[Rfam]
A member of the RNA family "mir-451 microRNA precursor family" from Geotrypetes seraphini, 71 nucleotides long. The base pairs follow the family's consensus structure, which was predicted with RNAalifold. The organism belongs to Geotrypetes, within Eukaryota. Rfam 15.1 lists 658 matches to the family in 500 species.
RNA sequence: UAAGGAGUGUCAGUUAAACCGUUACCAUUACUGACUUUAGUAAUGGUAACGGUUCUGCUGCUGCCCCUAUU
Numbered sequence: 001u002a003a004g005g006a007g008u009g010u011c012a013g014u015u016a017a018a019c020c021g022u023u024a025c026c027a028u029u030a031c032u033g034a035c036u037u038u039a040g041u042a043a044u045g046g047u048a049a050c051g052g053u054u055c056u057g058c059u060g061c062u063g064c065c066c067c068u069a070u071u
Base pairs, nucleotide, nucleotide: 007064008063009062011060012059013058017054018053019052020051022049023048024047025046026045027044028043029042030041031040032039033038